The record is a 140-nucleotide sequence from Acinetobacter nectaris, which matches "FMN riboswitch aptamer (RFN element)" in Rfam. The family's consensus secondary structure is taken from published work.
[Rfam]
RNA sequence: GUAUCUCUUCAGGGCGGGGUGUAAUUCCCCACCGGCGGUAAUCUCAUAAGAGUCAGCCCGCGAGCUUCAUACAUCGGUAUUUAGCAGAUUUGGUGAAAACCCAAAGCCGACGGUUAUAGUCCGGAUGAAAGAAGAUGACG
Numbered sequence: 001g002u003a004u005c006u007c008u009u010c011a012g013g014g015c016g017g018g019g020u021g022u023a024a025u026u027c028c029c030c031a032c033c034g035g036c037g038g039u040a041a042u043c044u045c046a047u048a049a050g051a052g053u054c055a056g057c058c059c060g061c062g063a064g065c066u067u068c069a070u071a072c073a074u075c076g077g078u079a080u081u082u083a084g085c086a087g088a089u090u091u092g093g094u095g096a097a098a099a100c101c102c103a104a105a106g107c108c109g110a111c112g113g114u115u116a117u118a119g120u121c122c123g124g125a126u127g128a129a130a131g132a133a134g135a136u137g138a139c140g
Base pairs, nucleotide, nucleotide: 004137006135007134008133009132010131017029018028019027031120032119033109034108035061036060037059038058056107057106064085065084066083089105090104091103092102093101111123112122113121
Record summary: The match comes from Rfam's covariance-model search (124 bits).